[Rfam]
RNA: L13-Bacteroidia ribosomal protein leader
RNA sequence: GGGGAGAGUCUUAGAAUCCCCACAGAGCGAGUGUGUAAAUAGUGGUGUCUUUGGCCGGGCACAACGGUUUGUGAAUC
Number, nucleotide and partner (000 for none) at each position: 001g021002g020003g019004g018005a017006g000007a000008g000009u000010c000011u000012u000013a000014g000015a000016a000017u005018c004019c003020c002021c001022a000023c000024a000025g000026a000027g000028c000029g000030a000031g000032u000033g000034u000035g000036u071037a070038a069039a068040u067041a000042g065043u064044g000045g062046u061047g060048u059049c058050u057051u000052u000053g000054g000055c000056c000057g050058g049059g048060c047061a046062c045063a000064a043065c042066g000067g040068u039069u038070u037071g036072u000073g000074a000075a000076u000077c000